[Rfam]
RNA: ZMP/ZTP riboswitch aptamer (pfl RNA motif)
RNA sequence: AUGCAGUCUGCUUCCUGACGGAUAAGUGGAAUUGACCACGUGGAGGCAGAUGAAUGUAUGCGCCGACCGUCUGGGCAAAAUCG
Numbered sequence: 001a002u003g004c005a006g007u008c009u010g011c012u013u014c015c016u017g018a019c020g021g022a023u024a025a026g027u028g029g030a031a032u033u034g035a036c037c038a039c040g041u042g043g044a045g046g047c048a049g050a051u052g053a054a055u056g057u058a059u060g061c062g063c064c065g066a067c068c069g070u071c072u073g074g075g076c077a078a079a080a081u082c083g
Base pairs, nucleotide, nucleotide: 006051007050008049009048010047011046012045015042017071018070019069020068021067026039027038028037029036062076063075064074